[Rfam]
RNA sequence: ACGUCCUGCCUCGUGAUCGUCUUCUCAACCUUCACCGGCGGACGGAAUGACGAAGGGCCCCCGCGAGGAAAGGACUCGCGGGGGCCCUUC
Numbered sequence: 001a002c003g004u005c006c007u008g009c010c011u012c013g014u015g016a017u018c019g020u021c022u023u024c025u026c027a028a029c030c031u032u033c034a035c036c037g038g039c040g041g042a043c044g045g046a047a048u049g050a051c052g053a054a055g056g057g058c059c060c061c062c063g064c065g066a067g068g069a070a071a072g073g074a075c076u077c078g079c080g081g082g083g084g085c086c087c088u089u090c
Stems, first nucleotide, its partner, number of pairs: 002044002006041005013035004019029002052090016

Rfam assigns this 90-nucleotide RNA from Streptomyces corynorhini to the family "sodF sRNA". On this family, see Kim et al., Nucleic Acids Res 2014: "Inverse regulation of Fe- and Ni-containing SOD genes by a Fur family regulator Nur through small RNA processed from 3'UTR of the sodF mRNA". The base pairs follow the family's consensus structure.